[Rfam]
RNA sequence: GGGCCCGGUGGGUCCGGGACUCCUCCCAAGGACUCAACUGAUGAAGGACUUCCCACCCGCCCGCCCUUCCCGGUGGAGUCACCCGUCAGGGUGAACCGUGCACACAGGGUGGCGAAUCGGGGUUACUGUCGGCGGGAGACACCCACACAAGUCGGCCCCCGGCCAGGAUUGCCGUCCCGGACGCGAGGGCCUCACCACCAAGGAAGAUCCAGCUUCCCC
Numbered sequence: 001g002g003g004c005c006c007g008g009u010g011g012g013u014c015c016g017g018g019a020c021u022c023c024u025c026c027c028a029a030g031g032a033c034u035c036a037a038c039u040g041a042u043g044a045a046g047g048a049c050u051u052c053c054c055a056c057c058c059g060c061c062c063g064c065c066c067u068u069c070c071c072g073g074u075g076g077a078g079u080c081a082c083c084c085g086u087c088a089g090g091g092u093g094a095a096c097c098g099u100g101c102a103c104a105c106a107g108g109g110u111g112g113c114g115a116a117u118c119g120g121g122g123u124u125a126c127u128g129u130c131g132g133c134g135g136g137a138g139a140c141a142c143c144c145a146c147a148c149a150a151g152u153c154g155g156c157c158c159c160c161g162g163c164c165a166g167g168a169u170u171g172c173c174g175u176c177c178c179g180g181a182c183g184c185g186a187g188g189g190c191c192u193c194a195c196c197a198c199c200a201a202g203g204a205a206g207a208u209c210c211a212g213c214u215u216c217c218c219c
Base pairs, nucleotide, nucleotide: 007199008198009197010196016070017069018068019067079094080093081092082091083090084089109133110132112130154191155190156189157188158187160185161184163183166177167176168175202217203216204215205214206213
Streptomyces sRNA 4677: a 219-nucleotide RNA sequence from Streptomyces sp. RKND-216. It scores 65 bits against the family's covariance model. For this family Rfam cites "Complex intra-operonic dynamics mediated by a small RNA in Streptomyces coelicolor" (Hindra et al., PLoS One, 2014). It is annotated as a small RNA. Taxonomically the source falls in Streptomyces (Bacteria, Actinomycetota, Actinomycetes, Kitasatosporales).